RNA sequence: UUUCACCGAGCCCAGCCACAGCGGCCGGUCCGGGGCGCGGUCGCGACCGUAGGUGGCCAACAGCGCCUCGGCUUC
Dot-bracket structure: ..............(((.....))).....(.(....((.....(.(((....))).).....))...).)....
Shown here is a 75-nucleotide sequence from Nocardia mangyaensis, a member of the family "ASpks TB sRNA". For this family Rfam cites "Identification of small RNAs in Mycobacterium tuberculosis" (Arnvig and Young, Mol Microbiol, 2009). By type it is an antisense RNA. The match comes from Rfam's covariance-model search (75 bits). The source organism's lineage runs through Bacteria, Actinomycetota, Actinomycetes, Nocardiaceae and Nocardia.